[Rfam]
The family of this 104-nucleotide sequence from Vulpes vulpes is "mir-8834 microRNA precursor family". Rfam links the family to the GO terms RISC complex and miRNA-mediated post-transcriptional gene silencing.
RNA sequence: AGGAGGAACAACCGCAGUGGCGGGGCCAGCUCUGCAGCCCUGGAGUCAGCUCCCGCAGUAGCUCCGGGGCUCUCCGUCUGCAGGGCCUGGAGGCUCCGGGCGGG
Number, nucleotide and partner (000 for none) at each position: 001a000002g097003g096004a095005g094006g000007a000008a000009c089010a088011a000012c085013c084014g000015c000016a000017g000018u000019g078020g077021c076022g075023g074024g073025g072026c000027c000028a071029g070030c069031u068032c067033u066034g065035c000036a063037g000038c000039c000040c058041u057042g056043g000044a000045g000046u000047c000048a000049g000050c000051u000052c000053c000054c000055g000056c042057a041058g040059u000060a000061g000062c000063u036064c000065c034066g033067g032068g031069g030070c029071u028072c025073u024074c023075c022076g021077u020078c019079u000080g000081c000082a000083g000084g013085g012086c000087c000088u010089g009090g000091a000092g000093g000094c005095u004096c003097c002098g000099g000100g000101c000102g000103g000104g000

Notes: The base pairs follow the family's consensus structure, which was predicted with RNAalifold. The family has 2 seed sequences and 13,926 matches in Rfam 15.1. The source organism's lineage runs through Eukaryota, Craniata, Vertebrata, Dipnotetrapodomorpha and Vulpes.